[Rfam]
RNA sequence: AUGAGAAGGGCAUUCGGUGGAUGCCUUGGCACCAGGAGGCGAUGAAGGACGUGGCACGCUGCGAAAAGCCACGGGGAGCCGCGAGCAGGCGUUGAUCCGUGGAUGUCCGAAUGGGGCAACCCACCCCUUUGGGGUAUCGUCAGCUGAAUCCAUAGGCUGACGAGGCAAACCCGGGGAACUGAAACAUCUCAGUACCCGGAGGAACAGACAUCAACCGAGAUUCCGCGAGUAGUGGCGAGCGAAAGCGGAGCAGGCCAGUGGCCUUAUUGAGAGAAGCAGAACGGUCUGGAAAGUCCGGCCAGAGCGGGUGAUAGCCCCGUAUGCGUAGGGCUCGGUAAGGUCCUUGAGUAGGGCGGGACACGUGUAAUCCUGUCUGAACAUGGGGGGACCACCCUCCAAGCCUAAAUACUCCCUGGUGACCGAUAGUGCACAAGUACCGUGAGGGAAAGGUGAAAAGCACCCCGAAAGGGGAGUGAAAGAGACCUGAAACCGGAUGCCUACAAG
Dot-bracket structure: .......((((((((((.....(((..(((((((((((((......((((((........))).....(((((((..(((.......))).....)))))))...)))....(((....)))((((.....)))).(((((((((.........))))))))).))...((((((.....((....))......))))).).........((....))..((((((.....((.....))....)))))..((((.....(((((((((((....(((...(((.(......).)))..(...).(((.......)))...)))......))))))))))..).......((((((((.........))))))))......(((((......)))))..))))..)..)).))))))).))...............((....))....)).........((((....))))............).....)))))))))).....
Numbered sequence: 001a002u003g004a005g006a007a008g009g010g011c012a013u014u015c016g017g018u019g020g021a022u023g024c025c026u027u028g029g030c031a032c033c034a035g036g037a038g039g040c041g042a043u044g045a046a047g048g049a050c051g052u053g054g055c056a057c058g059c060u061g062c063g064a065a066a067a068g069c070c071a072c073g074g075g076g077a078g079c080c081g082c083g084a085g086c087a088g089g090c091g092u093u094g095a096u097c098c099g100u101g102g103a104u105g106u107c108c109g110a111a112u113g114g115g116g117c118a119a120c121c122c123a124c125c126c127c128u129u130u131g132g133g134g135u136a137u138c139g140u141c142a143g144c145u146g147a148a149u150c151c152a153u154a155g156g157c158u159g160a161c162g163a164g165g166c167a168a169a170c171c172c173g174g175g176g177a178a179c180u181g182a183a184a185c186a187u188c189u190c191a192g193u194a195c196c197c198g199g200a201g202g203a204a205c206a207g208a209c210a211u212c213a214a215c216c217g218a219g220a221u222u223c224c225g226c227g228a229g230u231a232g233u234g235g236c237g238a239g240c241g242a243a244a245g246c247g248g249a250g251c252a253g254g255c256c257a258g259u260g261g262c263c264u265u266a267u268u269g270a271g272a273g274a275a276g277c278a279g280a281a282c283g284g285u286c287u288g289g290a291a292a293g294u295c296c297g298g299c300c301a302g303a304g305c306g307g308g309u310g311a312u313a314g315c316c317c318c319g320u321a322u323g324c325g326u327a328g329g330g331c332u333c334g335g336u337a338a339g340g341u342c343c344u345u346g347a348g349u350a351g352g353g354c355g356g357g358a359c360a361c362g363u364g365u366a367a368u369c370c371u372g373u374c375u376g377a378a379c380a381u382g383g384g385g386g387g388a389c390c391a392c393c394c395u396c397c398a399a400g401c402c403u404a405a406a407u408a409c410u411c412c413c414u415g416g417u418g419a420c421c422g423a424u425a426g427u428g429c430a431c432a433a434g435u436a437c438c439g440u441g442a443g444g445g446a447a448a449g450g451u452g453a454a455a456a457g458c459a460c461c462c463c464g465a466a467a468g469g470g471g472a473g474u475g476a477a478a479g480a481g482a483c484c485u486g487a488a489a490c491c492g493g494a495u496g497c498c499u500a501c502a503a504g
Stems, first nucleotide, its partner, number of pairs: 008499010023484001024450002028421002030418007037410002039166002047108003050063003069102007078090003113122003123135004137163009170201001171199005181188002211218002221406001222249005232240002252403004261343001262340010276324003282297003286293001300304001306318003351375008382397005437444002460471004
Bacterial large subunit ribosomal RNA: a 504-nucleotide part of an RNA from Rhodopila globiformis. Clan: LSU clan. The source organism's lineage runs through Bacteria, Pseudomonadota, Alphaproteobacteria, Acetobacteraceae and Rhodopila.